This 264-nucleotide sequence from Ammonifex degensii belongs to the Rfam family "Bacterial large signal recognition particle RNA". The family's consensus secondary structure is taken from published work. Rfam links the family to the GO terms signal recognition particle, plasma membrane targeting and SRP-dependent cotranslational protein targeting to membrane, signal sequence recognition. The family's RNA type in Rfam is non-coding RNA gene. For this family Rfam cites "SRPDB: Signal Recognition Particle Database" (Rosenblad et al., Nucleic Acids Res, 2003). A search with the family's covariance model found it, with a score of 200 bits. The organism belongs to Ammonifex degensii, within Bacteria. From the family's description: The signal recognition particle (SRP) is a universally conserved ribonucleoprotein involved in the co-translational targeting of proteins to membranes.
RNA sequence: CCGUGCUAGACGGGGAGGUAGCGGUGCCCUGUACCCGCAAUCCGCUAUAGCGGGGUCGAAUUCCUGCCCGCGGGCCCGGUUUGUGGUACGGCUACCGCAAGGGGCGAAGAAGGCUGGGUCUCGCGCGACGGAGCUUCCCGAACCGUGUCAGGUCCUGACGGAAGCAGCACUAAGGGAAAUCCUCCGGGUGCCGCGAGGGUGCCUGGCCCGAGUUACCUGCGGUCGGCGUCGACCGGAGACCGGUGUUCAACGGCAGGUGCACGG
Numbered sequence: 001c002c003g004u005g006c007u008a009g010a011c012g013g014g015g016a017g018g019u020a021g022c023g024g025u026g027c028c029c030u031g032u033a034c035c036c037g038c039a040a041u042c043c044g045c046u047a048u049a050g051c052g053g054g055g056u057c058g059a060a061u062u063c064c065u066g067c068c069c070g071c072g073g074g075c076c077c078g079g080u081u082u083g084u085g086g087u088a089c090g091g092c093u094a095c096c097g098c099a100a101g102g103g104g105c106g107a108a109g110a111a112g113g114c115u116g117g118g119u120c121u122c123g124c125g126c127g128a129c130g131g132a133g134c135u136u137c138c139c140g141a142a143c144c145g146u147g148u149c150a151g152g153u154c155c156u157g158a159c160g161g162a163a164g165c166a167g168c169a170c171u172a173a174g175g176g177a178a179a180u181c182c183u184c185c186g187g188g189u190g191c192c193g194c195g196a197g198g199g200u201g202c203c204u205g206g207c208c209c210g211a212g213u214u215a216c217c218u219g220c221g222g223u224c225g226g227c228g229u230c231g232a233c234c235g236g237a238g239a240c241c242g243g244u245g246u247u248c249a250a251c252g253g254c255a256g257g258u259g260c261a262c263g264g
Stems, first nucleotide, its partner, number of pairs: 001264006009057003012030004017025001019023001034054005063257006072248004078241005084235004091227002094223005101217002103214003112208008120197006126188001129186005135178005145170004153162003